The record is a 57-nucleotide RNA sequence from Nostoc sphaeroides, which matches "Nitrogen stress-induced RNA 1" in Rfam. It scores 39 bits against the family's covariance model. A reference for the family is Ionescu et al. (2010), "Heterocyst-specific transcription of NsiR1, a non-coding RNA encoded in a tandem array of direct repeats in cyanobacteria", J Mol Biol.

RNA sequence: UGGUAGAUGCACCCUAAUAAUUCAUAGCCCUCAGCUUUUAGUUGAAGGCUUUUUUAU
Numbered sequence: 001u002g003g004u005a006g007a008u009g010c011a012c013c014c015u016a017a018u019a020a021u022u023c024a025u026a027g028c029c030c031u032c033a034g035c036u037u038u039u040a041g042u043u044g045a046a047g048g049c050u051u052u053u054u055u056a057u
Stems, first nucleotide, its partner, number of pairs: 002013003027049003031045006